[Rfam]
RNA sequence: AUCUUAUUAAGAGUAGUGGAGGGAAUGGGCCCUAUGAAACUCAGCAACCUAUUAAAUUAGGUGCUAAAUCCCACAGGAAAUCCUGAAAGAUAAGUU
Numbered sequence: 001a002u003c004u005u006a007u008u009a010a011g012a013g014u015a016g017u018g019g020a021g022g023g024a025a026u027g028g029g030c031c032c033u034a035u036g037a038a039a040c041u042c043a044g045c046a047a048c049c050u051a052u053u054a055a056a057u058u059a060g061g062u063g064c065u066a067a068a069u070c071c072c073a074c075a076g077g078a079a080a081u082c083c084u085g086a087a088a089g090a091u092a093a094g095u096u
Stems, first nucleotide, its partner, number of pairs: 001096001003094006013042001015041003021032003026073004043065004048061002051057002069088001074085004